The family of this 137-nucleotide sequence from Arenibacter sp. NBRC 103722 is "Group II catalytic intron D1-D4-2". Rfam 15.1 lists 1,231 matches to the family in 625 species. It scores 72 bits against the family's covariance model. Group II introns are found in rRNA, tRNA and mRNA of organelles in fungi, plants and protists, and also in mRNA in bacteria.
RNA sequence: GAUAGACAAUUGGACUAUCGGGGAAGAUAUUCAGGUAUCUUUCUCAAACCGCCCUGUGGUGCUUGUUUCUAAGGGAACAGGUAUUGAGCGACAGGGUCAAGGCAGGCAAACCAUAUUAUUGUUAUUGCCUGUAAGGU
Number, nucleotide and partner (000 for none) at each position: 001g019002a018003u017004a016005g015006a000007c000008a000009a000010u000011u000012g000013g000014a000015c005016u004017a003018u002019c001020g045021g044022g043023g042024a041025a040026g000027a038028u037029a036030u035031u000032c000033a000034g000035g030036u029037a028038u027039c000040u025041u024042u023043c022044u021045c020046a000047a000048a000049c000050c136051g000052c096053c095054c094055u093056g092057u091058g085059g084060u000061g082062c081063u080064u000065g078066u077067u076068u075069c000070u000071a000072a000073g000074g000075g068076a067077a066078c065079a000080g063081g062082u061083a000084u059085u058086g000087a000088g000089c000090g000091a057092c056093a055094g054095g053096g052097u000098c000099a000100a000101g000102g132103c131104a130105g129106g128107c127108a126109a125110a000111c000112c000113a000114u000115a000116u000117u000118a000119u000120u000121g000122u000123u000124a000125u109126u108127g107128c106129c105130u104131g103132u102133a000134a000135g000136g050137u000